RNA sequence: GCGCCGUCGCGUGACUGGCGCAAUGGUGGGGCACCACGAGGAAGCGCGACAGGUUCGAUGCCGCGCGCCUGGGCACCCUUC
Numbered sequence: 001g002c003g004c005c006g007u008c009g010c011g012u013g014a015c016u017g018g019c020g021c022a023a024u025g026g027u028g029g030g031g032c033a034c035c036a037c038g039a040g041g042a043a044g045c046g047c048g049a050c051a052g053g054u055u056c057g058a059u060g061c062c063g064c065g066c067g068c069c070u071g072g073g074c075a076c077c078c079u080u081c
Stems, first nucleotide, its partner, number of pairs: 004052001006050007015041002017069005026037004059075004

The family of this 81-nucleotide sequence from Sphingomonas sp. CL5.1 is "ZMP/ZTP riboswitch aptamer (pfl RNA motif)".
Its family is annotated with regulation of purine nucleotide biosynthetic process and one-carbon metabolic process in the Gene Ontology.
It scores 62 bits against the family's covariance model.
For this family Rfam cites "An ancient riboswitch class in bacteria regulates purine biosynthesis and one-carbon metabolism" (Kim et al., Mol Cell, 2015).
The source organism's lineage runs through Bacteria, Alphaproteobacteria, Sphingomonadales, Sphingomonadaceae and Sphingomonas.